Nucleotides: 119
Stems, first nucleotide, its partner, number of pairs: 001094001003092001005091006014042002022035003050081005
Number, partner (000 for none) and nucleotide at each position: 001094c002000g003092c004000a005091c006090g007089c008088g009087g010086g011000c012000g013000c014042g015041g016000c017000a018000g019000a020000u021000c022035c023034g024033g025000c026000c027000a028000a029000a030000u031000a032000a033024c034023c035022g036000g037000u038000u039000u040000g041015c042014c043000a044000u045000c046000c047000g048000g049000u050081g051080u052079u053078u054077c055000a056000c057000c058000u059000u060000g061000c062000c063000a064000g065000a066000a067000c068000c069000g070000g071000u072000a073000u074000g075000g076000g077054g078053a079052a080051a081050c082000c083000a084000c085000g086010c087009c088008c089007g090006c091005g092003g093000a094001g095000g096000a097000u098000g099000a100000a101000c102000c103000g104000g105000u106000a107000a108000a109000g110000g111000a112000g113000a114000a115000a116000a117000g118000g119000c
Rfam assigns this 119-nucleotide RNA from Eilatimonas milleporae to the family "rpsB sRNA". A search with the family's covariance model found it, with a score of 49 bits. Pairs were carried over by alignment from the consensus structure, which is taken from published work. The family has 4 seed sequences and 245 matches in Rfam 15.1.